[Rfam]
RNA sequence: GCACAUGUAUUCAUUUUAAUCCACAUGUGUUGAAGUGGAUUGGAGUGGAAUUAAACUAUGUUCCAUUCCAAUCCAUUCCAACACAUGUGGAUUGAAGUGGAUACACAU
Number, nucleotide and partner (000 for none) at each position: 001g000002c000003a000004c000005a000006u105007g104008u103009a102010u101011u100012c099013a098014u097015u000016u095017u094018a093019a092020u091021c090022c089023a088024c087025a086026u085027g084028u083029g082030u081031u080032g079033a000034a000035g076036u075037g074038g073039a072040u071041u070042g069043g068044a000045g066046u065047g064048g000049a000050a000051u000052u000053a000054a000055a000056c000057u000058a000059u000060g000061u000062u000063c000064c047065a046066u045067u000068c043069c042070a041071a040072u039073c038074c037075a036076u035077u000078c000079c032080a031081a030082c029083a028084c027085a026086u025087g024088u023089g022090g021091a020092u019093u018094g017095a016096a000097g014098u013099g012100g011101a010102u009103a008104c007105a006106c000107a000108u000
The record is a 108-nucleotide RNA from Miscanthus lutarioriparius, which matches "MIR5565 microRNA precursor family" in Rfam. Gene Ontology terms of the family: RISC complex and miRNA-mediated post-transcriptional gene silencing.